[Rfam]
Shown here is a 97-nucleotide RNA from Marinobacter sp. BSs20148, a member of the family "Bacterial small signal recognition particle RNA". The family's consensus secondary structure is taken from published work. Gene Ontology terms of the family: SRP-dependent cotranslational protein targeting to membrane, signal sequence recognition and signal recognition particle, plasma membrane targeting. Rfam describes the family as follows. The signal recognition particle (SRP) is a universally conserved ribonucleoprotein involved in the co-translational targeting of proteins to membranes. It is annotated as a non-coding RNA gene.
RNA sequence: UACUGGUGCCUUCGCAACAUGAAACCGUGAACCCGGUCAGACCCGGAAGGGAGCAGCCGCAGCGGUCGAUAUGUGUGCCGGAGUGUCGCUGGUGGGG
Numbered sequence: 001u002a003c004u005g006g007u008g009c010c011u012u013c014g015c016a017a018c019a020u021g022a023a024a025c026c027g028u029g030a031a032c033c034c035g036g037u038c039a040g041a042c043c044c045g046g047a048a049g050g051g052a053g054c055a056g057c058c059g060c061a062g063c064g065g066u067c068g069a070u071a072u073g074u075g076u077g078c079c080g081g082a083g084u085g086u087c088g089c090u091g092g093u094g095g096g097g
Stems, first nucleotide, its partner, number of pairs: 004091005010083005015075001017074005024066005034059004042051003
Dot-bracket structure: ...(((((.((((((.(((((..(((((.....((((....(((....)))....))))..)))))...))))))...)))))...)))))......